[Rfam]
RNA sequence: UGAUUAAAGGGUCAAAAGGUAUCAUCGAUGCAUGCUUGCAUGCAAUUCGAUGUAUACCUUAGUGACCUGCACUACACCGAGAAAGUAGCAAUUUACUAUGCGAAGCUAGUAAAUUAGCGGAUUUCGAGGUGGAGUCAGAUUACGGGAAUGCGGAGCAUGGAGUAAUCUGAUUAAUCA
Numbered sequence: 001u002g003a004u005u006a007a008a009g010g011g012u013c014a015a016a017a018g019g020u021a022u023c024a025u026c027g028a029u030g031c032a033u034g035c036u037u038g039c040a041u042g043c044a045a046u047u048c049g050a051u052g053u054a055u056a057c058c059u060u061a062g063u064g065a066c067c068u069g070c071a072c073u074a075c076a077c078c079g080a081g082a083a084a085g086u087a088g089c090a091a092u093u094u095a096c097u098a099u100g101c102g103a104a105g106c107u108a109g110u111a112a113a114u115u116a117g118c119g120g121a122u123u124u125c126g127a128g129g130u131g132g133a134g135u136c137a138g139a140u141u142a143c144g145g146g147a148a149u150g151c152g153g154a155g156c157a158u159g160g161a162g163u164a165a166u167c168u169g170a171u172u173a174a175u176c177a
Base pairs, nucleotide, nucleotide: 001177002176003175004174005173006172007171011066012065013064014063017059018058019057020056021055022054023052024051025050026049027048028047030043031042032041033040034039071135072134073133075131076130077129078128081125082124083123084122088118089117090115091114092113093112094111095110096109097108098107137168138167139166140165141164142163143162148158149157150156151155
Rfam assigns this 177-nucleotide RNA sequence to the family "Clostridiales-1 RNA". The family's RNA type in Rfam is small RNA.